This 70-nucleotide sequence from Herbaspirillum sp. meg3 belongs to the Rfam family "Betaproteobacteria toxic small RNA". Lineage of the source: Bacteria > Betaproteobacteria > Burkholderiales > Oxalobacteraceae > Herbaspirillum. A reference for the family is Kimelman et al. (2012), "A vast collection of microbial genes that are toxic to bacteria", Genome Res.
[Rfam]
RNA sequence: UGUCUCCUCCAAUUUUCCUCCUUAAGAAAUUGGAUUCAGCCCGCAACCUCUGGUUCGCGGGCUUUUUUUU
Numbered sequence: 001u002g003u004c005u006c007c008u009c010c011a012a013u014u015u016u017c018c019u020c021c022u023u024a025a026g027a028a029a030u031u032g033g034a035u036u037c038a039g040c041c042c043g044c045a046a047c048c049u050c051u052g053g054u055u056c057g058c059g060g061g062c063u064u065u066u067u068u069u070u
Base pairs, nucleotide, nucleotide: 008034009033010032011031012030013029014028015027038063039062040061041060042059043058044057